[Rfam]
RNA sequence: AGCCUGUGAUGAGCCUUUCUUUCUGACAUCUCCAAUGAAAGUGUUGCAUCACAGCAAUGCUUGAUUACUGUUUUUGUGGCUGAGGCUU
Numbered sequence: 001a002g003c004c005u006g007u008g009a010u011g012a013g014c015c016u017u018u019c020u021u022u023c024u025g026a027c028a029u030c031u032c033c034a035a036u037g038a039a040a041g042u043g044u045u046g047c048a049u050c051a052c053a054g055c056a057a058u059g060c061u062u063g064a065u066u067a068c069u070g071u072u073u074u075u076g077u078g079g080c081u082g083a084g085g086c087u088u
Base pairs, nucleotide, nucleotide: 001087002086003085004084041060044057045056046055047054

Shown here is an 88-nucleotide RNA sequence from Chiloscyllium punctatum, a member of the family "Small nucleolar RNA SNORD60". The base pairs follow the family's consensus structure, which was predicted with PFOLD. It is annotated as a C/D-box small nucleolar RNA. Taxonomically the source falls in Chiloscyllium (Eukaryota, Vertebrata, Selachii, Orectolobiformes). Its Rfam clan is "SNORD60 clan".